RNA sequence: CUUCACCGAACCGAGGUGGAGCGGCCGGUCCGCCGGGCGGUUCUGGCCGUACGUGGCCAGCAGCGCCUGCGCCUC
Numbered sequence: 001c002u003u004c005a006c007c008g009a010a011c012c013g014a015g016g017u018g019g020a021g022c023g024g025c026c027g028g029u030c031c032g033c034c035g036g037g038c039g040g041u042u043c044u045g046g047c048c049g050u051a052c053g054u055g056g057c058c059a060g061c062a063g064c065g066c067c068u069g070c071g072c073c074u075c
Stems, first nucleotide, its partner, number of pairs: 015025001017023001031071003038065002043060003047056003
The record is a 75-nucleotide sequence from Streptomyces sp. W1SF4, which matches "ASpks TB sRNA" in Rfam. Rfam classes the family as an antisense RNA. Taxonomically the source falls in Streptomyces (Bacteria, Actinomycetota, Actinomycetes, Kitasatosporales).